Shown here is a 600-nucleotide part of an RNA from Porphyromonas macacae, a member of the family "Bacterial large subunit ribosomal RNA". Rfam 15.1 lists 51,934 matches to the family in 10,816 species. The source organism's lineage runs through Bacteria, Bacteroidia, Bacteroidales, Porphyromonadaceae and Porphyromonas. It scores 2721 bits against the family's covariance model.
[Rfam]
RNA sequence: UAGUAUCGGUGAAGAUGCCGAUUACCCGCAACGGGACGAAAAGACCCCGUGAACCUUUACUAUAGCUUUACAUUGAUCCUGGGUACCGGAUGUGUAGGAUAGGCCGGAGACUGAGAAGGUGUGACGCCAGUCAUGUCUGAGUCGCUGUUGAAAUACGGCCCUUCUGUUAUUUGGGAUCUAACUUGAAAAAUCAAGGACAUUGUAUGGUGGGUAGUUUGACUGGGGUGGUCGCCUCCAAAAGCGUAACGGAGGCUUCUAAAGGUACCCUCAGGCCGAUUGGUAACCGGUCGCAGAGUGUAAUGGCACAAGGGUGCUUGACUGGGAGACAAACAAGUCGCACAGGUAGGAAACUAGAGCAUAGUGAUCCGGUGGUUCCGUAUGGAAGGGCCAUCGCUCAAAGGAUAAAAGGUACUCCGGGGAUAACAGGCUGAUCAUUCCCAAGAGCUCAUAUCGACGGAAUGGUUUGGCACCUCGAUGUCGGCUCGUCACAUCCUGGGGCUGGAGAAGGUCCCAAGGGUUGGGCUGUUCGCCCAUUAAAGUGGCACGCGAGCUGGGUUCAGAACGUCGUGAGACAGUUCGGUCUCUAUCUGUUGUGGGCGC
Numbered sequence: 001u002a003g004u005a006u007c008g009g010u011g012a013a014g015a016u017g018c019c020g021a022u023u024a025c026c027c028g029c030a031a032c033g034g035g036a037c038g039a040a041a042a043g044a045c046c047c048c049g050u051g052a053a054c055c056u057u058u059a060c061u062a063u064a065g066c067u068u069u070a071c072a073u074u075g076a077u078c079c080u081g082g083g084u085a086c087c088g089g090a091u092g093u094g095u096a097g098g099a100u101a102g103g104c105c106g107g108a109g110a111c112u113g114a115g116a117a118g119g120u121g122u123g124a125c126g127c128c129a130g131u132c133a134u135g136u137c138u139g140a141g142u143c144g145c146u147g148u149u150g151a152a153a154u155a156c157g158g159c160c161c162u163u164c165u166g167u168u169a170u171u172u173g174g175g176a177u178c179u180a181a182c183u184u185g186a187a188a189a190a191u192c193a194a195g196g197a198c199a200u201u202g203u204a205u206g207g208u209g210g211g212u213a214g215u216u217u218g219a220c221u222g223g224g225g226u227g228g229u230c231g232c233c234u235c236c237a238a239a240a241g242c243g244u245a246a247c248g249g250a251g252g253c254u255u256c257u258a259a260a261g262g263u264a265c266c267c268u269c270a271g272g273c274c275g276a277u278u279g280g281u282a283a284c285c286g287g288u289c290g291c292a293g294a295g296u297g298u299a300a301u302g303g304c305a306c307a308a309g310g311g312u313g314c315u316u317g318a319c320u321g322g323g324a325g326a327c328a329a330a331c332a333a334g335u336c337g338c339a340c341a342g343g344u345a346g347g348a349a350a351c352u353a354g355a356g357c358a359u360a361g362u363g364a365u366c367c368g369g370u371g372g373u374u375c376c377g378u379a380u381g382g383a384a385g386g387g388c389c390a391u392c393g394c395u396c397a398a399a400g401g402a403u404a405a406a407a408g409g410u411a412c413u414c415c416g417g418g419g420a421u422a423a424c425a426g427g428c429u430g431a432u433c434a435u436u437c438c439c440a441a442g443a444g445c446u447c448a449u450a451u452c453g454a455c456g457g458a459a460u461g462g463u464u465u466g467g468c469a470c471c472u473c474g475a476u477g478u479c480g481g482c483u484c485g486u487c488a489c490a491u492c493c494u495g496g497g498g499c500u501g502g503a504g505a506a507g508g509u510c511c512c513a514a515g516g517g518u519u520g521g522g523c524u525g526u527u528c529g530c531c532c533a534u535u536a537a538a539g540u541g542g543c544a545c546g547c548g549a550g551c552u553g554g555g556u557u558c559a560g561a562a563c564g565u566c567g568u569g570a571g572a573c574a575g576u577u578c579g580g581u582c583u584c585u586a587u588c589u590g591u592u593g594u595g596g597g598c599g600c
Stems, first nucleotide, its partner, number of pairs: 005022005025597008034589003038584002046418004051414002053410005059215004066207002069204004075178011087166004092161001102160005109143003118137008182195003218230004231253006254399001256356002262314006268294002271289005295304002319342003323338001325336003344353003367393007375386002427468003431465001432462007442452002479554001480552004484546001485543005492517002495512006519533005560578004564573003